Small nucleolar RNA SNORD116: a 91-nucleotide sequence from Cricetulus griseus. For this family Rfam cites "Identification of brain-specific and imprinted small nucleolar RNA genes exhibiting an unusual genomic organization" (Cavaille et al., Proc Natl Acad Sci U S A, 2000). The family's RNA type in Rfam is C/D-box small nucleolar RNA. Rfam 15.1 lists 3,260 matches to the family in 170 species. Gene Ontology terms of the family: RNA processing and nucleolus.
RNA sequence: GGAUCGAUGAUGAUUCAAAUCAAACUUUCCUUGGAAAUCUGAACAAAAGGAGUGAAAGCUCAAUACGCCUCUCUCAUCGGGACUGAGGUCC
Numbered sequence: 001g002g003a004u005c006g007a008u009g010a011u012g013a014u015u016c017a018a019a020u021c022a023a024a025c026u027u028u029c030c031u032u033g034g035a036a037a038u039c040u041g042a043a044c045a046a047a048a049g050g051a052g053u054g055a056a057a058g059c060u061c062a063a064u065a066c067g068c069c070u071c072u073c074u075c076a077u078c079g080g081g082a083c084u085g086a087g088g089u090c091c
Base pairs, nucleotide, nucleotide: 001091002090003089004088005087025054027052028051029050031046032045033044